[Rfam]
RNA: Ribosomal protein L10 leader
RNA sequence: UGUGAAUAUCCAUUUGUACCGUAGACCGUAGGGGCGAAUUAUUUUCGCUUAAUGUCCUACCGAGGGCAAAGGAACUCAGACUCUUACUUAAGAUGAUGAAAUUCCGCCUCUUGUCUACUAUUGGCAAGAGGCUUUUCUUUUGUCGGU
Numbered sequence: 001u002g003u004g005a006a007u008a009u010c011c012a013u014u015u016g017u018a019c020c021g022u023a024g025a026c027c028g029u030a031g032g033g034g035c036g037a038a039u040u041a042u043u044u045u046c047g048c049u050u051a052a053u054g055u056c057c058u059a060c061c062g063a064g065g066g067c068a069a070a071g072g073a074a075c076u077c078a079g080a081c082u083c084u085u086a087c088u089u090a091a092g093a094u095g096a097u098g099a100a101a102u103u104c105c106g107c108c109u110c111u112u113g114u115c116u117a118c119u120a121u122u123g124g125c126a127a128g129a130g131g132c133u134u135u136u137c138u139u140u141u142g143u144c145g146g147u
Stems, first nucleotide, its partner, number of pairs: 028060006034048005106132010